[Rfam]
RNA sequence: GGGCCCAUAGCUCAGUCGGUCAGAGCGGCCGGCUCAUAACCGGCUGGUCCCUGGUUCGAACCCAGGUGGGCCCA
Numbered sequence: 001g002g003g004c005c006c007a008u009a010g011c012u013c014a015g016u017c018g019g020u021c022a023g024a025g026c027g028g029c030c031g032g033c034u035c036a037u038a039a040c041c042g043g044c045u046g047g048u049c050c051c052u053g054g055u056u057c058g059a060a061c062c063c064a065g066g067u068g069g070g071c072c073c074a
Stems, first nucleotide, its partner, number of pairs: 001073007010026004028044005050066005
Rfam assigns this 74-nucleotide sequence from a Nannocystaceae bacterium to the family "tRNA". Taxonomically the source falls in Nannocystaceae (Bacteria, Pseudomonadati, Polyangia, Nannocystales). Pairs were carried over by alignment from the consensus structure, which is taken from published work. A search with the family's covariance model found it, with a score of 72 bits.